Source information: Shown here is a 115-nucleotide sequence from Medicago truncatula, a member of the family "MIR2593 microRNA precursor family". The source organism's lineage runs through Eukaryota, Viridiplantae, Embryophyta, Tracheophyta and Medicago. It scores 98 bits against the family's covariance model.
[Rfam]
Nucleotides: 115
Base pairs, nucleotide, nucleotide: 002114003113004112005111006110007109009107010106011105012104013103015101016100017099018098019097020096021095022094024092025091027089028088029087030086031085032084033083035081036080037079038078040076041075042074043073044072049067050066052064
Number, partner (000 for none) and nucleotide at each position: 001000u002114u003113a004112u005111a006110g007109g008000a009107g010106a011105c012104a013103a014000u015101u016100c017099a018098u019097u020096u021095u022094u023000g024092a025091g026000g027089u028088u029087c030086a031085u032084u033083g034000a035081a036080u037079a038078a039000c040076u041075g042074a043073u044072g045000u046000a047000u048000u049067u050066g051000a052064u053000c054000u055000a056000u057000a058000u059000u060000a061000u062000a063000g064052a065000c066050c067049a068000u069000a070000u071000a072044c073043a074042u075041c076040a077000a078038u079037u080036a081035u082000c083033c084032a085031a086030u087029g088028a089027a090000c091025c092024u093000a094022a095021a096020a097019a098018g099017u100016g101015a102000a103013u104012u105011g106010u107009c108000u109007c110006u111005u112004a113003u114002a115000a
Its family is annotated with RISC complex and miRNA-mediated post-transcriptional gene silencing in the Gene Ontology. Rfam 15.1 lists 1,262 matches to the family in 6 species. Pairs were carried over by alignment from the consensus structure, which was predicted with RNAalifold.